[Rfam]
Listeria sRNA rliF: a 200-nucleotide sequence from Listeria monocytogenes. On this family, see Mandin et al., Nucleic Acids Res 2007: "Identification of new noncoding RNAs in Listeria monocytogenes and prediction of mRNA targets". The family's consensus secondary structure was predicted with WAR. Taxonomically the source falls in Listeria monocytogenes (Bacteria, Bacillota, Bacilli, Listeriaceae). Rfam classes the family as a small RNA.
RNA sequence: GGAUGAUAAUUUCAUCUUCUCUUUUUUGAUUUUAUAUUUUGGUACACCUAAUUAAUGUGAAAAUGGGUAUAUCCAAAAUGUACACAAAACCGUUAUUGUGAAUACAGGAUUUUCAAUGUAUAUUAAAUAAUUUUGAAAAGAGGGGGCUUUUUAGUCACGAAAGCAGCAUAUGCUCAAGUAAGUUCUUCUAAUCAAAAUUU
Numbered sequence: 001g002g003a004u005g006a007u008a009a010u011u012u013c014a015u016c017u018u019c020u021c022u023u024u025u026u027u028g029a030u031u032u033u034a035u036a037u038u039u040u041g042g043u044a045c046a047c048c049u050a051a052u053u054a055a056u057g058u059g060a061a062a063a064u065g066g067g068u069a070u071a072u073c074c075a076a077a078a079u080g081u082a083c084a085c086a087a088a089a090c091c092g093u094u095a096u097u098g099u100g101a102a103u104a105c106a107g108g109a110u111u112u113u114c115a116a117u118g119u120a121u122a123u124u125a126a127a128u129a130a131u132u133u134u135g136a137a138a139a140g141a142g143g144g145g146g147c148u149u150u151u152u153a154g155u156c157a158c159g160a161a162a163g164c165a166g167c168a169u170a171u172g173c174u175c176a177a178g179u180a181a182g183u184u185c186u187u188c189u190a191a192u193c194a195a196a197a198u199u200u
Stems, first nucleotide, its partner, number of pairs: 002019002005016003033059006065074003077124008129199008137152006163188001165186002168183002171180003